[Rfam]
RNA sequence: UACAGGCCUUCCGGUCCUACUCCAUUCCUAUAGGCCGGAAGAGUCGAAAAAAAGGAGGAAAAUCCGCCGGACCGGCGGUGCGGCAGUGUGGAGACCUGUCGUAACGUUCUGGGAGUUUUGCUCUCCCGGGGCGAGAGGGUAUUUGCGGAGGCAUUGCCCUUACGGUCCAUGUAUAUGGCA
Numbered sequence: 001u002a003c004a005g006g007c008c009u010u011c012c013g014g015u016c017c018u019a020c021u022c023c024a025u026u027c028c029u030a031u032a033g034g035c036c037g038g039a040a041g042a043g044u045c046g047a048a049a050a051a052a053a054g055g056a057g058g059a060a061a062a063u064c065c066g067c068c069g070g071a072c073c074g075g076c077g078g079u080g081c082g083g084c085a086g087u088g089u090g091g092a093g094a095c096c097u098g099u100c101g102u103a104a105c106g107u108u109c110u111g112g113g114a115g116u117u118u119u120g121c122u123c124u125c126c127c128g129g130g131g132c133g134a135g136a137g138g139g140u141a142u143u144u145g146c147g148g149a150g151g152c153a154u155u156g157c158c159c160u161u162a163c164g165g166u167c168c169a170u171g172u173a174u175a176u177g178g179c180a
Stems, first nucleotide, its partner, number of pairs: 008041007016034004064078004069168006079103008088095002106132009135161007144153003
The family of this 180-nucleotide RNA from Flavonifractor sp. An52 is "malK-I RNA".
A search with the family's covariance model found it, with a score of 140 bits.
Lineage of the source: Bacteria > Bacillati > Bacillota > Clostridia > Flavonifractor.
The base pairs follow the family's consensus structure, which is taken from published work.